[Rfam]
RNA: Selenocysteine insertion sequence 1
Organism: Erpetoichthys calabaricus
RNA sequence: CUCACAUUAUGAAGGGGAUGGGGGAAAGCCCUCGGGAGCCCCAUCCCCAGAAGAGUUAAUGGG
Numbered sequence: 001c002u003c004a005c006a007u008u009a010u011g012a013a014g015g016g017g018a019u020g021g022g023g024g025a026a027a028g029c030c031c032u033c034g035g036g037a038g039c040c041c042c043a044u045c046c047c048c049a050g051a052a053g054a055g056u057u058a059a060u061g062g063g
Stems, first nucleotide, its partner, number of pairs: 001063004014048010029036002